[Rfam]
RNA sequence: GCGAGACACCUGGGCCAUGGGCGAUUUUGCCCGAUAAACUGUUCGCGGACGCCGCCGGGCGCAGCCCCCGGCCACUCCACCAAUGCUCAGCCAGCAGCCGCUGCAACCCCAGGGAG
Numbered sequence: 001g002c003g004a005g006a007c008a009c010c011u012g013g014g015c016c017a018u019g020g021g022c023g024a025u026u027u028u029g030c031c032c033g034a035u036a037a038a039c040u041g042u043u044c045g046c047g048g049a050c051g052c053c054g055c056c057g058g059g060c061g062c063a064g065c066c067c068c069c070g071g072c073c074a075c076u077c078c079a080c081c082a083a084u085g086c087u088c089a090g091c092c093a094g095c096a097g098c099c100g101c102u103g104c105a106a107c108c109c110c111a112g113g114g115a116g
Stems, first nucleotide, its partner, number of pairs: 047078003055071005092103004
The family of this 116-nucleotide RNA from Streptomyces sulfonofaciens is "Streptomyces-metK RNA". By type it is a small RNA. It scores 102 bits against the family's covariance model.